[Rfam]
Nucleotides: 088
Base pairs, nucleotide, nucleotide: 006083007082008081009080010079011078012077013076020034021033022032023031036068037067038066039064040063043062045060
Number, partner (000 for none) and nucleotide at each position: 001000c002000g003000g004000a005000a006083u007082u008081g009080a010079u011078c012077g013076g014000g015000a016000g017000a018000g019000a020034g021033c022032a023031g024000c025000g026000c027000a028000g029000a030000g031023c032022u033021g034020c035000c036068g037067c038066c039064g040063a041000a042000g043062g044000u045060g046000c047000g048000a049000a050000c051000a052000c053000c054000c055000a056000a057000a058000a059000a060045c061000u062043c063040u064039c065000a066038g067037g068036c069000a070000a071000a072000a073000g074000g075000a076013c077012c078011g079010a080009u081008c082007a083006a084000c085000g086000g087000a088000a
A member of the RNA family "Glycine riboswitch aptamer" from Cognatundibacterium luofuense, 88 nucleotides long. Lineage of the source: Bacteria > Pseudomonadota > Burkholderiales > Oxalobacteraceae > Cognatundibacterium. Rfam links the family to the GO term glycine biosynthetic process.